[Rfam]
RNA sequence: AGACGGACAUUGGAUAAAUUCUACCCGGUGAGGUUCCUUUUGCAACCACACCGGACGAGAUUUCAUCCGACAACAG
Dot-bracket structure: .....(...((((((.((((.(..(((((..((............))..)))))..).))))..))))))).....
Numbered sequence: 001a002g003a004c005g006g007a008c009a010u011u012g013g014a015u016a017a018a019u020u021c022u023a024c025c026c027g028g029u030g031a032g033g034u035u036c037c038u039u040u041u042g043c044a045a046c047c048a049c050a051c052c053g054g055a056c057g058a059g060a061u062u063u064c065a066u067c068c069g070a071c072a073a074c075a076g
Stems, first nucleotide, its partner, number of pairs: 006071001010070006017062004022057001025054005032047002
A member of the RNA family "mir-3478 microRNA precursor family" from Melipona bicolor, 76 nucleotides long. Lineage of the source: Eukaryota > Bilateria > Protostomia > Pancrustacea > Melipona. Rfam 15.1 lists 14 matches to the family in 14 species.